[Rfam]
RNA sequence: GUGCACGUAACUUUCUCGCAUUAAGUUGCAAGGGGAGGGGGAAAUUGGGGUCCCCUCCGGUUGCGGGGCACGGAAAG
Numbered sequence: 001g002u003g004c005a006c007g008u009a010a011c012u013u014u015c016u017c018g019c020a021u022u023a024a025g026u027u028g029c030a031a032g033g034g035g036a037g038g039g040g041g042a043a044a045u046u047g048g049g050g051u052c053c054c055c056u057c058c059g060g061u062u063g064c065g066g067g068g069c070a071c072g073g074a075a076a077g
Stems, first nucleotide, its partner, number of pairs: 001071004006065002009062004014033002018029003035058001037056006
RNA: Corio-PBP RNA